RNA: Lysine riboswitch aptamer
Organism: Eubacterium ruminantium
RNA sequence: UUUUGCAGUAGAGGACGCAAUGAUCAUUAGUAGUCUGUCGGAUGAACCUUAAUUCAUACGAAGACAGGUGAAAGGGUGAUUUGCCGAAGUGAUCUGGUAAUUAAGGGAUCAGGUUGCUGGGAUCGUGAUUAAGAGUCACGGAACUGUCGUCAGAUUUAUCUGAUGGAGUGCUACUUAUAGA
Numbered sequence: 001u002u003u004u005g006c007a008g009u010a011g012a013g014g015a016c017g018c019a020a021u022g023a024u025c026a027u028u029a030g031u032a033g034u035c036u037g038u039c040g041g042a043u044g045a046a047c048c049u050u051a052a053u054u055c056a057u058a059c060g061a062a063g064a065c066a067g068g069u070g071a072a073a074g075g076g077u078g079a080u081u082u083g084c085c086g087a088a089g090u091g092a093u094c095u096g097g098u099a100a101u102u103a104a105g106g107g108a109u110c111a112g113g114u115u116g117c118u119g120g121g122a123u124c125g126u127g128a129u130u131a132a133g134a135g136u137c138a139c140g141g142a143a144c145u146g147u148c149g150u151c152a153g154a155u156u157u158a159u160c161u162g163a164u165g166g167a168g169u170g171c172u173a174c175u176u177a178u179a180g181a
Stems, first nucleotide, its partner, number of pairs: 007175005017084004025076001033069007088118011119145002123141007147166007